A member of the RNA family "Small nucleolar RNA SNORD17" from Amazona aestiva, 333 nucleotides long. Rfam 15.1 lists 1,015 matches to the family in 568 species. It is annotated as a C/D-box small nucleolar RNA. About the family: The snoRNA HBI-43 belongs to the C/D family of snoRNAs, guiding 2'O-ribose methylation at position U3797 of the 28S rRNA. Pseudouridylation in position U3797 is predicted to be guided by the H/ACA snoRNA ACA48. Lineage of the source: Eukaryota > Teleostomi > Sarcopterygii > Australaves > Amazona.
[Rfam]
RNA sequence: GUGAGAUGAUGACAGAGUUUAUCCAUUCUCUGAGUGCAGUGGUGCUGCCCUCCUGCAGCAUUCUGACUCCUGUUCUAGGGUCUGGGUGCUGUGCCUGUCUCUUAUACACAUCUAGAUGUGUAUAAGAGACAGGCGCUCCUGCAGCACCCCGAUUCCUGUUCUAGGGUCUGGGUGCUGUGCAGCCUCCAGAGACCCUCUGGUCUGCCAGUGUCCUACUGGGGGCUGUUGUGGUGUGUGGCUGGCUGCCUGCAGGAGUGAAGUGGUGCUGGCAUGGUUGGAGCCCCUCUCUGGGGGGCUCUGUCCUCUCUGAGAUGAAGGGUGAUGUCUGAUCAC
Numbered sequence: 001g002u003g004a005g006a007u008g009a010u011g012a013c014a015g016a017g018u019u020u021a022u023c024c025a026u027u028c029u030c031u032g033a034g035u036g037c038a039g040u041g042g043u044g045c046u047g048c049c050c051u052c053c054u055g056c057a058g059c060a061u062u063c064u065g066a067c068u069c070c071u072g073u074u075c076u077a078g079g080g081u082c083u084g085g086g087u088g089c090u091g092u093g094c095c096u097g098u099c100u101c102u103u104a105u106a107c108a109c110a111u112c113u114a115g116a117u118g119u120g121u122a123u124a125a126g127a128g129a130c131a132g133g134c135g136c137u138c139c140u141g142c143a144g145c146a147c148c149c150c151g152a153u154u155c156c157u158g159u160u161c162u163a164g165g166g167u168c169u170g171g172g173u174g175c176u177g178u179g180c181a182g183c184c185u186c187c188a189g190a191g192a193c194c195c196u197c198u199g200g201u202c203u204g205c206c207a208g209u210g211u212c213c214u215a216c217u218g219g220g221g222g223c224u225g226u227u228g229u230g231g232u233g234u235g236u237g238g239c240u241g242g243c244u245g246c247c248u249g250c251a252g253g254a255g256u257g258a259a260g261u262g263g264u265g266c267u268g269g270c271a272u273g274g275u276u277g278g279a280g281c282c283c284c285u286c287u288c289u290g291g292g293g294g295g296c297u298c299u300g301u302c303c304u305c306u307c308u309g310a311g312a313u314g315a316a317g318g319g320u321g322a323u324g325u326c327u328g329a330u331c332a333c
Base pairs, nucleotide, nucleotide: 010332011331012330017325018324020322023319024318026316027315028314030311031310034307039270040269042267043265044264045263046262047261048260049257050255051254052253053252054251055250056249057176058175059174060173061172062171063170065168066167067166069165070164071163179246180245181244182243183242184241192232193231198225199224200223201222202221203220205219206218207217208216209215210214273303274302276300277299278298279297281295282294283293284292